[Rfam]
Source information:
A member of the RNA family "EGFOA RNA", 115 nucleotides long.
RNA sequence: AGCUACCUCGAUUCCUUAGUUCCCCGUCCUGGCGUGGCGACGAUGAGAACCUAUGUGAUAAGGUACCAGAUAAAGACAGACCGAGGCUGGUUCGCUUUAAGCGAGAAUCAUCGUA
Numbered sequence: 001a002g003c004u005a006c007c008u009c010g011a012u013u014c015c016u017u018a019g020u021u022c023c024c025c026g027u028c029c030u031g032g033c034g035u036g037g038c039g040a041c042g043a044u045g046a047g048a049a050c051c052u053a054u055g056u057g058a059u060a061a062g063g064u065a066c067c068a069g070a071u072a073a074a075g076a077c078a079g080a081c082c083g084a085g086g087c088u089g090g091u092u093c094g095c096u097u098u099a100a101g102c103g104a105g106a107a108u109c110a111u112c113g114u115a
Stems, first nucleotide, its partner, number of pairs: 006086005026081002029079003040114007049064004065091005